[Rfam]
RNA sequence: UAGGGGGAGGUUGGCGGUAUCACUGGUACUGAGGUAAUGCCUGCCCACAGUAGCAGACAUGCCGCCCUCCUCCCCCUGCA
Dot-bracket structure: (((((.((((..((((((((..(((.(((((................))))).)))..))))))))..)))).)))))..